RNA: Small nucleolar RNA R64/Z200 family
RNA sequence: UCGCUGCUGUGACGAAUUAUGAAUAAAUUCACAUGUCAGACUUCAGAGAUUUUUUAUAAGAAUCAAUGAGAUUAAAAUUCAUAUUCUCUGAGCAGAGU
Numbered sequence: 001u002c003g004c005u006g007c008u009g010u011g012a013c014g015a016a017u018u019a020u021g022a023a024u025a026a027a028u029u030c031a032c033a034u035g036u037c038a039g040a041c042u043u044c045a046g047a048g049a050u051u052u053u054u055u056a057u058a059a060g061a062a063u064c065a066a067u068g069a070g071a072u073u074a075a076a077a078u079u080c081a082u083a084u085u086c087u088c089u090g091a092g093c094a095g096a097g098u
Stems, first nucleotide, its partner, number of pairs: 002097001004095004048064006